The family of this 52-nucleotide RNA sequence from Lentivirus humimdef1 is "HIV Ribosomal frameshift signal".
About the family: This family represents the HIV Ribosomal frameshift signal. HIV uses a system called -1 ribosomal frameshifting to produce the required ratio of Gag and Gag-Pol polyproteins. The stem-loop structure of the frameshift signal is thought to impede the ribosome and cause slippage in the 5' direction, this causes the -1 frameshift and translation then continues in the new frame.
Pairs were carried over by alignment from the consensus structure, which is taken from published work.
For this family Rfam cites "The human immunodeficiency virus type 1 ribosomal frameshifting site is an invariant sequence determinant and an important target for antiviral therapy" (Biswas et al., J Virol, 2004).
NCBI's taxonomy places the organism under Viruses, Riboviria, Pararnavirae, Artverviricota, Lentivirus humimdef1.
It is annotated as a frameshift element.
RNA sequence: UUUUUUAGGGAAAAUUUGGCCUUCCCCCCAGGGGAGGCCCGGCAAUUUCCUU
Numbered sequence: 001u002u003u004u005u006u007a008g009g010g011a012a013a014a015u016u017u018g019g020c021c022u023u024c025c026c027c028c029c030a031g032g033g034g035a036g037g038c039c040c041g042g043c044a045a046u047u048u049c050c051u052u
Stems, first nucleotide, its partner, number of pairs: 008052003012048003015042002018039008
Dot-bracket structure: .......(((.(((((.((((((((......)))))))).))...))).)))

Rfam links the family to the GO term viral translational frameshifting.